[Rfam]
RNA sequence: CAUUUUGUUCGACGGGUAAGUAUCCUAACGGGCUUUUUAGGUCGUCGACAAUUAUUACAAAGAGGAGUGCUGUUAAUGGCCCGUAUCGCUGGCAUUAACAUUCCUGAA
Number, nucleotide and partner (000 for none) at each position: 001c000002a000003u000004u000005u051006u050007g049008u000009u048010c047011g046012a045013c044014g000015g000016g000017u000018a000019a000020g000021u000022a000023u000024c092025c091026u000027a000028a000029c083030g082031g081032g080033c000034u000035u000036u000037u107038u106039a105040g000041g000042u000043c000044g013045u012046c011047g010048a009049c007050a006051a005052u000053u000054a000055u000056u000057a000058c000059a000060a000061a000062g000063a000064g000065g000066a000067g000068u000069g000070c000071u000072g000073u000074u000075a000076a000077u000078g000079g000080c032081c031082c030083g029084u000085a000086u000087c000088g000089c000090u000091g025092g024093c000094a000095u000096u000097a000098a000099c000100a000101u000102u000103c000104c000105u039106g038107a037108a000
This 108-nucleotide sequence from an Alteromonadaceae bacterium belongs to the Rfam family "Alpha operon ribosome binding site". Gene Ontology term of the family: ribosome binding. The family's RNA type in Rfam is cis-regulatory element. About the family: The bacterial alpha operon ribosome binding site is surrounded by this complex pseudoknotted structure. Translation of the mRNA produces 4 ribosomal protein products, one of which (S4) acts as a translational repressor by binding to the nested pseudoknot region. The literature on the family includes a 2001 paper in J Biol Chem by Schlax et al., "Translational repression of the Escherichia coli alpha operon mRNA: importance of an mRNA conformational switch and a ternary entrapment complex". Pairs were carried over by alignment from the consensus structure, which is taken from published work.